[Rfam]
Nucleotides: 142
Base pairs, nucleotide, nucleotide: 004057005056006055007054008053009052013050014049021043022042023041024040025039026038027037028036075086076085077084078083101140102139103138104137105136106135107134108133109132111130117125118124
Number, partner (000 for none) and nucleotide at each position: 001000c002000u003000c004057u005056u006055a007054g008053a009052g010000c011000g012000u013050g014049u015000c016000a017000g018000a019000a020000g021043c022042u023041u024040a025039a026038u027037c028036c029000c030000u031000a032000a033000u034000g035000g036028g037027g038026g039025u040024u041023a042022g043021g044000g045000c046000a047000g048000a049014a050013c051000a052009c053008u054007u055006u056005a057004a058000a059000a060000g061000g062000a063000u064000g065000c066000a067000c068000a069000c070000u071000c072000c073000u074000u075086a076085g077084a078083c079000g080000a081000g082000a083078g084077u085076c086075u087000a088000a089000a090000a091000a092000a093000c094000u095000u096000a097000a098000u099000u100000g101140g102139c103138g104137g105136c106135a107134u108133a109132g110000c111130u112000g113000a114000g115000u116000a117125g118124c119000a120000u121000u122000u123000u124118g125117c126000g127000a128000a129000a130111a131000c132109u133108u134107a135106u136105g137104c138103c139102g140101c141000u142000u

RT-14 RNA: a 142-nucleotide RNA from Acinetobacter variabilis. Pairs were carried over by alignment from the consensus structure, which is taken from published work. Rfam's curators put it in the seed alignment. The family's RNA type in Rfam is small RNA. Lineage of the source: Bacteria > Pseudomonadati > Pseudomonadota > Moraxellaceae > Acinetobacter.